RNA: Actinomyces-1 RNA
RNA sequence: GGCACCGCCGGACGGGGACGGUCUCGAGGGUUGGGGAGCCCAGUGACAGGCCGCAUCUCUGAGACAGUGUCGGGUCAUAGGGAGCCCGGCGCAGUCGCUCUGGCGAAGGAG
Numbered sequence: 001g002g003c004a005c006c007g008c009c010g011g012a013c014g015g016g017g018a019c020g021g022u023c024u025c026g027a028g029g030g031u032u033g034g035g036g037a038g039c040c041c042a043g044u045g046a047c048a049g050g051c052c053g054c055a056u057c058u059c060u061g062a063g064a065c066a067g068u069g070u071c072g073g074g075u076c077a078u079a080g081g082g083a084g085c086c087c088g089g090c091g092c093a094g095u096c097g098c099u100c101u102g103g104c105g106a107a108g109g110a111g
Base pairs, nucleotide, nucleotide: 006105007104008103009102010101011100012099013061014060015059016058019053020052021051022050023049024048028041029040030039031038032037063096064095065094067092068091071088072087073086074085075084